[Rfam]
RNA: ASpks TB sRNA
Organism: Mycobacterium tuberculosis
RNA sequence: CUUGAUUGAGCCCACCCACAGCGGCUGCUCCGCUGGACGUCCCUGCCCGUAGGUGGACAGCAAUGCCUGCGCUUC
Numbered sequence: 001c002u003u004g005a006u007u008g009a010g011c012c013c014a015c016c017c018a019c020a021g022c023g024g025c026u027g028c029u030c031c032g033c034u035g036g037a038c039g040u041c042c043c044u045g046c047c048c049g050u051a052g053g054u055g056g057a058c059a060g061c062a063a064u065g066c067c068u069g070c071g072c073u074u075c
Base pairs, nucleotide, nucleotide: 014026016024017023031071032070033069038065039064043060044059045058047056048055049054